[Rfam]
RNA: U5 spliceosomal RNA
Organism: Labrus bergylta
RNA sequence: AUACUCGGGUUUCUCUUUCAUAUCGUACAAGUCUUUCGCCUUUUACUAAAGACUUCCGUGGAGAGGACACUAUUGAGUUCAACUGAUUUUUGGGGCUUAGCCUUGUAGCUGAGC
Numbered sequence: 001a002u003a004c005u006c007g008g009g010u011u012u013c014u015c016u017u018u019c020a021u022a023u024c025g026u027a028c029a030a031g032u033c034u035u036u037c038g039c040c041u042u043u044u045a046c047u048a049a050a051g052a053c054u055u056c057c058g059u060g061g062a063g064a065g066g067a068c069a070c071u072a073u074u075g076a077g078u079u080c081a082a083c084u085g086a087u088u089u090u091u092g093g094g095g096c097u098u099a100g101c102c103u104u105g106u107a108g109c110u111g112a113g114c
Base pairs, nucleotide, nucleotide: 003078004077005076006075009068010067012066013065014064016063017062018061019060020059029055030054031053032052033051034050035049036048094114096113097112098111099110100109101108